[Rfam]
RNA sequence: AUAAGUAGGAAGCAUGACGAUGUGCACAGAAAUUGAAUUAGGUCUCUAGGCCUGUCAUCUCCAAUGCCAUUUGGAUUUGAUUUGGGGCAUGGUUUCGUAGCAAAACA
Numbered sequence: 001a002u003a004a005g006u007a008g009g010a011a012g013c014a015u016g017a018c019g020a021u022g023u024g025c026a027c028a029g030a031a032a033u034u035g036a037a038u039u040a041g042g043u044c045u046c047u048a049g050g051c052c053u054g055u056c057a058u059c060u061c062c063a064a065u066g067c068c069a070u071u072u073g074g075a076u077u078u079g080a081u082u083u084g085g086g087g088c089a090u091g092g093u094u095u096c097g098u099a100g101c102a103a104a105a106c107a
Base pairs, nucleotide, nucleotide: 012025013024014023015022040090042088043087044086050081052079055074056073
The family of this 107-nucleotide RNA sequence from Rhododendron simsii is "Small nucleolar RNA snoR100". Rfam classes the family as an H/ACA-box small nucleolar RNA. A search with the family's covariance model found it, with a score of 63 bits. The base pairs follow the family's consensus structure, which was predicted with WAR. Rfam links the family to the GO terms RNA processing and nucleolus.